A member of the RNA family "MIR5269 microRNA precursor family" from Trifolium pratense, 80 nucleotides long.

RNA sequence: UUGGGUAAAAUCAAUGUGGGUCCCACACUUUGGAAAUGGGUCCCACAUAAAGUGGUGGGAUACACAUUAAUUUCAUCCAA
Numbered sequence: 001u002u003g004g005g006u007a008a009a010a011u012c013a014a015u016g017u018g019g020g021u022c023c024c025a026c027a028c029u030u031u032g033g034a035a036a037u038g039g040g041u042c043c044c045a046c047a048u049a050a051a052g053u054g055g056u057g058g059g060a061u062a063c064a065c066a067u068u069a070a071u072u073u074c075a076u077c078c079a080a
Stems, first nucleotide, its partner, number of pairs: 001080006008073004013068006023058003026054007
Pairs were carried over by alignment from the consensus structure, which was predicted with RNAalifold.